[Rfam]
RNA sequence: UGUGAAAUAAAUCACAAACAAACAUACACCCCUUUGUUUGAACGUGAACAUUUCUCCCAUCCCCUUUGUGAAAAGAAGCAUCUCCCGUAGAGAUGCUUCUUUAUUUUU
Number, nucleotide and partner (000 for none) at each position: 001u000002g056003u000004g054005a053006a052007a051008u050009a000010a000011a000012u000013c046014a045015c044016a000017a000018a000019c040020a039021a038022a037023c036024a035025u000026a000027c000028a000029c000030c000031c000032c000033u000034u000035u024036g023037u022038u021039u020040g019041a000042a000043c000044g015045u014046g013047a000048a000049c000050a008051u007052u006053u005054c004055u000056c002057c000058c000059a000060u000061c000062c000063c000064c000065u000066u000067u000068g000069u000070g104071a000072a102073a101074a100075g099076a098077a097078g096079c095080a094081u093082c092083u091084c090085c000086c000087g000088u000089a000090g084091a083092g082093a081094u080095g079096c078097u077098u076099c075100u074101u073102u072103a000104u070105u000106u000107u000108u000
The record is a 108-nucleotide sequence from Rummeliibacillus stabekisii, which matches "Listeria sRNA rli61" in Rfam. The literature on the family includes a 2009 paper in Nature by Toledo-Arana et al., "The Listeria transcriptional landscape from saprophytism to virulence". NCBI's taxonomy places the organism under Bacteria, Bacillati, Bacilli, Caryophanales, Rummeliibacillus. By type it is a cis-regulatory element.